Annotation
This 219-nucleotide sequence from Tengunoibacter tsumagoiensis belongs to the Rfam family "HNH endonuclease-associated RNA and ORF (HEARO) RNA". A reference for the family is Weinberg et al. (2009), "Exceptional structured noncoding RNAs revealed by bacterial metagenome analysis", Nature.
Nucleotides: 219
Stems, first nucleotide, its partner, number of pairs: 001055007010028002012025002015022002029043004058205003062201001063076005079199010100136002104130008112215001117210001120209002138180009150171001152168006
Number, partner (000 for none) and nucleotide at each position: 001055g002054u003053c004052a005051c006050u007049g008000a009000c010028c011027c012025c013024c014000g015022c016021g017000u018000a019000a020000a021016c022015g023000c024013g025012g026000a027011g028010g029043c030042u031041u032040g033000u034000g035000c036000u037000g038000a039000g040032c041031a042030a043029g044000c045000c046000u047000g048000a049007c050006a051005g052004u053003g054002a055001c056000c057000a058205g059204a060203c061000u062201g063076a064075g065074u066073c067072u068000u069000u070000c071000g072067a073066g074065g075064c076063u077000c078000c079199g080198c081197u082196c083195a084194g085193g086192a087191g088190g089000a090000a091000u092000g093000c094000a095000c096000a097000u098000a099000g100136g101135u102000a103000c104130c105129g106128u107127g108126g109125g110124g111123u112215g113000c114000g115000u116000c117210g118000u119000g120209c121208c122000a123111g124110c125109c126108c127107c128106a129105c130104g131000c132000u133000c134000u135101a136100c137000g138180g139179a140178u141177c142176u143175g144174g145173g146172u147000u148000a149000a150171a151000a152168g153167a154166c155165g156164g157163u158000c159000g160000g161000g162000u163157a164156u165155c166154g167153u168152c169000g170000g171150u172146g173145c174144c175143c176142a177141g178140g179139u180138c181000a182000u183000c184000a185000g186000a187000a188000a189000c190088c191087c192086u193085c194084u195083u196082g197081a198080g199079c200000u201062u202000u203060g204059u205058c206000g207000a208121g209120g210117c211000a212000c213000a214000c215112c216000u217000g218000a219000c
It is annotated as a non-coding RNA gene. The family has 139 seed sequences and 952 matches in Rfam 15.1.